[Rfam]
RNA: Fungal signal recognition particle RNA
Organism: Fusarium falciforme
RNA sequence: GACUGUAAUGGUCCAACGGCGAAGACGUUCAAACACGCUCAUCUUCCCAUCCCAAUUCCACCACCUUCGGGUGGUGGCCCUCCGCCGCGCCCCGUCCGAACGCCGCGGUGGCCGCCCACUCGUGCAGGAAACUCACGAUGCUGGUAACCCCUUGGCGGUCCUGAGCGCUGGAGAUGACCCUUGAGGGAGGCUUCACUCUGCAGAGAUCUCUCCCCCGUCGCGUGGCGGGUGGGAAUACGCUUGUGCGGGGGGGUUUGGGUUGGUUGAGGAUGAGAUGGGACAGUCAACGCUUUCUU
Numbered sequence: 001g002a003c004u005g006u007a008a009u010g011g012u013c014c015a016a017c018g019g020c021g022a023a024g025a026c027g028u029u030c031a032a033a034c035a036c037g038c039u040c041a042u043c044u045u046c047c048c049a050u051c052c053c054a055a056u057u058c059c060a061c062c063a064c065c066u067u068c069g070g071g072u073g074g075u076g077g078c079c080c081u082c083c084g085c086c087g088c089g090c091c092c093c094g095u096c097c098g099a100a101c102g103c104c105g106c107g108g109u110g111g112c113c114g115c116c117c118a119c120u121c122g123u124g125c126a127g128g129a130a131a132c133u134c135a136c137g138a139u140g141c142u143g144g145u146a147a148c149c150c151c152u153u154g155g156c157g158g159u160c161c162u163g164a165g166c167g168c169u170g171g172a173g174a175u176g177a178c179c180c181u182u183g184a185g186g187g188a189g190g191c192u193u194c195a196c197u198c199u200g201c202a203g204a205g206a207u208c209u210c211u212c213c214c215c216c217g218u219c220g221c222g223u224g225g226c227g228g229g230u231g232g233g234a235a236u237a238c239g240c241u242u243g244u245g246c247g248g249g250g251g252g253g254u255u256u257g258g259g260u261u262g263g264u265u266g267a268g269g270a271u272g273a274g275a276u277g278g279g280a281c282a283g284u285c286a287a288c289g290c291u292u293u294c295u296u
Stems, first nucleotide, its partner, number of pairs: 001013003016293001018291004024285003029280002034278001038274003047263003051259005059076007081248001084246002087240003091233008100223004105218004110149002114145003117140002120138005126133002161165001170213005180205003187198003